Description:
A member of the RNA family "Small nucleolar RNA Z206" from Aegilops tauschii, 114 nucleotides long. A reference for the family is Chen et al. (2003), "The high diversity of snoRNAs in plants: identification and comparative study of 120 snoRNA genes from Oryza sativa", Nucleic Acids Res. Its family is annotated with RNA processing and nucleolus in the Gene Ontology.
[Rfam]
RNA sequence: CAAGCCGGCGGAGGUCGCGGUGACCGCGACGGUGCGCCGGUCGACGGCUCUGCUGGAUGGCGCCAGCGUGGUGCCUCAGGAGGUAGGCGGGGCGGUGUGGUUCGGAUCGGCGGU
Numbered sequence: 001c002a003a004g005c006c007g008g009c010g011g012a013g014g015u016c017g018c019g020g021u022g023a024c025c026g027c028g029a030c031g032g033u034g035c036g037c038c039g040g041u042c043g044a045c046g047g048c049u050c051u052g053c054u055g056g057a058u059g060g061c062g063c064c065a066g067c068g069u070g071g072u073g074c075c076u077c078a079g080g081a082g083g084u085a086g087g088c089g090g091g092g093c094g095g096u097g098u099g100g101u102u103c104g105g106a107u108c109g110g111c112g113g114u
Stems, first nucleotide, its partner, number of pairs: 004111005